mir-9195 microRNA precursor family: an 87-nucleotide RNA sequence from Cnephaeus nilssonii. The family's consensus secondary structure was predicted with RNAalifold.
RNA sequence: AGAGGCCCUCAGCAGCUGGGGUGGAACGCUUGCCUCAUCACUGCGGUGAUAAAACAAGCAUUCCGCCAGGCCGCUCACGCUGCCCGC
Numbered sequence: 001a002g003a004g005g006c007c008c009u010c011a012g013c014a015g016c017u018g019g020g021g022u023g024g025a026a027c028g029c030u031u032g033c034c035u036c037a038u039c040a041c042u043g044c045g046g047u048g049a050u051a052a053a054a055c056a057a058g059c060a061u062u063c064c065g066c067c068a069g070g071c072c073g074c075u076c077a078c079g080c081u082g083c084c085c086g087c
Stems, first nucleotide, its partner, number of pairs: 004084003012074002015071003020067007028059005037050005
Source information
Lineage of the source: Eukaryota > Metazoa > Amniota > Theria > Cnephaeus.